[Rfam]
Record summary
Rfam assigns this 84-nucleotide RNA sequence from Microctonus hyperodae to the family "mir-263 microRNA precursor family". For this family Rfam cites "Direct sequencing and expression analysis of a large number of miRNAs in Aedes aegypti and a multi-species survey of novel mosquito miRNAs" (Li et al., BMC Genomics, 2009). Its Rfam clan is "mir-182 clan". Gene Ontology terms of the family: RISC complex and miRNA-mediated post-transcriptional gene silencing.
RNA sequence: UAGACACUGUCAAUGGCACUGGAAGAAUUCACGGGGUACAUUAGCAACGAACCCGUGGAGCUCCUGUGUCAUACACAGCGUUUG
Numbered sequence: 001u002a003g004a005c006a007c008u009g010u011c012a013a014u015g016g017c018a019c020u021g022g023a024a025g026a027a028u029u030c031a032c033g034g035g036g037u038a039c040a041u042u043a044g045c046a047a048c049g050a051a052c053c054c055g056u057g058g059a060g061c062u063c064c065u066g067u068g069u070c071a072u073a074c075a076c077a078g079c080g081u082u083u084g
Stems, first nucleotide, its partner, number of pairs: 003082003007078004013072006021064002029058006